Source information
This 129-nucleotide sequence from Halalkalicoccus jeotgali belongs to the Rfam family "S15-Halobacteria ribosomal protein leader". Pairs were carried over by alignment from the consensus structure, which is taken from published work. Its Rfam clan is "Ribosomal Protein S15 Leader clan". For this family Rfam cites "Discovery of 20 novel ribosomal leader candidates in bacteria and archaea" (Eckert and Weinberg, BMC Microbiol, 2020). The sequence is in the family's curated seed alignment.
RNA sequence: GUGGGAACAGCACGGCCGCAAAUCCGACUCGCCACGAGCCGUCGAUGUCUCCGCGACUCGCGGGCUACGCCCGCUCGUUCGUUUCGAGAUGUGUACGAUGGCUCCGUGGCUCUGGGAUUGCGGUAGUGC
Numbered sequence: 001g002u003g004g005g006a007a008c009a010g011c012a013c014g015g016c017c018g019c020a021a022a023u024c025c026g027a028c029u030c031g032c033c034a035c036g037a038g039c040c041g042u043c044g045a046u047g048u049c050u051c052c053g054c055g056a057c058u059c060g061c062g063g064g065c066u067a068c069g070c071c072c073g074c075u076c077g078u079u080c081g082u083u084u085c086g087a088g089a090u091g092u093g094u095a096c097g098a099u100g101g102c103u104c105c106g107u108g109g110c111u112c113u114g115g116g117a118u119u120g121c122g123g124u125a126g127u128g129c
Base pairs, nucleotide, nucleotide: 010129011128012127013126015124016123017122018121019120020119021118024116025115031110032109033108034107035106036105